RNA sequence: UUGGGCGUGAGCCCUUCAGUGAAGUAAGCGGGACUACAAAAGUUAGUGCUGACGAACAGGAAUCGGAUAUGAGGCUAUGAGGUUGGAUGAGCAGGCACAUCACUGUAAAGCCCGAAAUUUAGAACCGAAGUAGUAGAUCCGGCAGGAAUUAACUGAGAGCUACUUGU
Numbered sequence: 001u002u003g004g005g006c007g008u009g010a011g012c013c014c015u016u017c018a019g020u021g022a023a024g025u026a027a028g029c030g031g032g033a034c035u036a037c038a039a040a041a042g043u044u045a046g047u048g049c050u051g052a053c054g055a056a057c058a059g060g061a062a063u064c065g066g067a068u069a070u071g072a073g074g075c076u077a078u079g080a081g082g083u084u085g086g087a088u089g090a091g092c093a094g095g096c097a098c099a100u101c102a103c104u105g106u107a108a109a110g111c112c113c114g115a116a117a118u119u120u121a122g123a124a125c126c127g128a129a130g131u132a133g134u135a136g137a138u139c140c141g142g143c144a145g146g147a148a149u150u151a152a153c154u155g156a157g158a159g160c161u162a163c164u165u166g167u
Stems, first nucleotide, its partner, number of pairs: 003014004028167005037159001041154006047147001049145003063142006074134003078127001081126004085113002088110001091106004

Rfam assigns this 167-nucleotide RNA to the family "Group II catalytic intron D1-D4-3". Its family is annotated with Group II intron splicing in the Gene Ontology. The base pairs follow the family's consensus structure.